The record is a 100-nucleotide RNA sequence from Merdimmobilis hominis, which matches "THF (Tetrahydrofolate) riboswitch aptamer" in Rfam.
A reference for the family is Ames et al. (2010), "A eubacterial riboswitch class that senses the coenzyme tetrahydrofolate", Chem Biol.
The family has 101 seed sequences and 747 matches in Rfam 15.1.
NCBI's taxonomy places the organism under Bacteria, Bacillati, Bacillota, Eubacteriales, Merdimmobilis.
A search with the family's covariance model found it, with a score of 92 bits.
Gene Ontology term of the family: tetrahydrofolate metabolic process.
Nucleotides: 100
Stems, first nucleotide, its partner, number of pairs: 002099004010087010020076003026057002029055003033051004040093003044089001061073004
Number, partner (000 for none) and nucleotide at each position: 001000c002099a003098c004097a005096g006000a007000g008000u009000a010087g011086a012085g013084c014083g015082c016081u017080g018079u019078g020076c021075g022074u023000c024000a025000a026057g027056u028000g029055c030054c031053g032000c033051c034050u035049g036048a037000a038000c039000g040093g041092g042091g043000a044089g045000u046000u047000g048036u049035c050034a051033g052000a053031c054030g055029g056027a057026c058000g059000a060000a061073a062072a063071g064070c065000c066000a067000u068000c069000g070064g071063c072062u073061u074022g075021c076020g077000g078019u079018a080017c081016a082015g083014u084013g085012c086011u087010c088000g089044c090000a091042u092041c093040c094000c095000a096005c097004u098003g099002u100000u